[Rfam]
RNA: Small nucleolar RNA snoR53Y
RNA sequence: GUUCCCUAUGAUGAUAUAAGAUUGACCAUGCUAAUUCCGAAAUUUGUUUCUGAAGAGAAUUUAUGUUAUGAUUAUCUGAGGGAGCA
Numbered sequence: 001g002u003u004c005c006c007u008a009u010g011a012u013g014a015u016a017u018a019a020g021a022u023u024g025a026c027c028a029u030g031c032u033a034a035u036u037c038c039g040a041a042a043u044u045u046g047u048u049u050c051u052g053a054a055g056a057g058a059a060u061u062u063a064u065g066u067u068a069u070g071a072u073u074a075u076c077u078g079a080g081g082g083a084g085c086a
Base pairs, nucleotide, nucleotide: 001085002084003083004082005081006080007079